[Rfam]
This 164-nucleotide RNA sequence from Arthrobacter sp. KBS0703 belongs to the Rfam family "c-di-AMP riboswitch aptamer (ydaO/yuaA leader)". The organism belongs to Arthrobacter, within Bacteria. The match comes from Rfam's covariance-model search (54 bits).
RNA sequence: UCUGCCGCUUUCCCGGAUUCCGCAUGACCAGGCAGAGGCGGGGGGAACCAGAGUCCCGGGCUUUUCGCAUCAGCCCUUGGGGUGAAGCCGACACGUGAAUUUCCGUGCGGCCGGAUGACCUCAUCCGAACCCGACAGCUAACUCCGCAGGUGUUGAGAGGCAAU
Number, nucleotide and partner (000 for none) at each position: 001u000002c000003u152004g151005c150006c149007g000008c000009u000010u037011u036012c035013c000014c000015g000016g000017a000018u000019u000020c000021c000022g000023c000024a000025u000026g000027a000028c000029c000030a000031g000032g000033c000034a000035g012036a011037g010038g147039c146040g145041g144042g143043g142044g000045g000046a000047a000048c000049c079050a078051g000052a000053g000054u000055c000056c000057c000058g000059g000060g000061c000062u000063u000064u000065u000066c000067g000068c000069a000070u000071c000072a000073g000074c000075c000076c000077u000078u050079g049080g132081g131082g130083u000084g000085a000086a000087g000088c110089c109090g108091a000092c000093a000094c000095g000096u000097g000098a000099a000100u000101u000102u000103c000104c000105g000106u000107g000108c090109g089110g088111c000112c000113g126114g125115a124116u123117g000118a000119c000120c000121u000122c000123a116124u115125c114126c113127g000128a000129a000130c082131c081132c080133g000134a000135c000136a000137g000138c000139u000140a000141a000142c043143u042144c041145c040146g039147c038148a000149g006150g005151u004152g003153u000154u000155g000156a000157g000158a000159g000160g000161c000162a000163a000164u000

The base pairs follow the family's consensus structure.